Shown here is a 182-nucleotide RNA sequence from Streptomyces abyssalis, a member of the family "c-di-AMP riboswitch aptamer (ydaO/yuaA leader)". The match comes from Rfam's covariance-model search (52 bits). Rfam's curators write: This family represents a conserved RNA structure found upstream of the ydaO and yuaA genes in Bacillus subtilis and related genes in other bacteria.
[Rfam]
RNA sequence: GCGGAAAACACGCAAUCCCAGCCCGGCAGGAGCGGGGGACCCAGGUAAGCGCCGCGCGUUUCGCACCCGAGGAACGCACGGCUAGGGGUGAAGCCGCACCCGAAUGCCCCCUCGCAUUCGGUGCGGCCGGGCCACUCCAGCCCGAAUCCGACAGCUCACCUCGCAGGCGCAGGAGAGGAACU
Numbered sequence: 001g002c003g004g005a006a007a008a009c010a011c012g013c014a015a016u017c018c019c020a021g022c023c024c025g026g027c028a029g030g031a032g033c034g035g036g037g038g039a040c041c042c043a044g045g046u047a048a049g050c051g052c053c054g055c056g057c058g059u060u061u062c063g064c065a066c067c068c069g070a071g072g073a074a075c076g077c078a079c080g081g082c083u084a085g086g087g088g089u090g091a092a093g094c095c096g097c098a099c100c101c102g103a104a105u106g107c108c109c110c111c112u113c114g115c116a117u118u119c120g121g122u123g124c125g126g127c128c129g130g131g132c133c134a135c136u137c138c139a140g141c142c143c144g145a146a147u148c149c150g151a152c153a154g155c156u157c158a159c160c161u162c163g164c165a166g167g168c169g170c171a172g173g174a175g176a177g178g179a180a181c182u
Stems, first nucleotide, its partner, number of pairs: 009169001011167001016031003032164006042085001086149003094126007129143004